[Rfam]
RNA: Bacillaceae-1 RNA
Organism: Peribacillus cavernae
RNA sequence: UUCAAAGGAACGUCGACUAACAACCGCCACGUCCUGUGGCAAUGUCGGCACUAGCACGUUCUGUGCG
Numbered sequence: 001u002u003c004a005a006a007g008g009a010a011c012g013u014c015g016a017c018u019a020a021c022a023a024c025c026g027c028c029a030c031g032u033c034c035u036g037u038g039g040c041a042a043u044g045u046c047g048g049c050a051c052u053a054g055c056a057c058g059u060u061c062u063g064u065g066c067g
Stems, first nucleotide, its partner, number of pairs: 012049006026040005054066004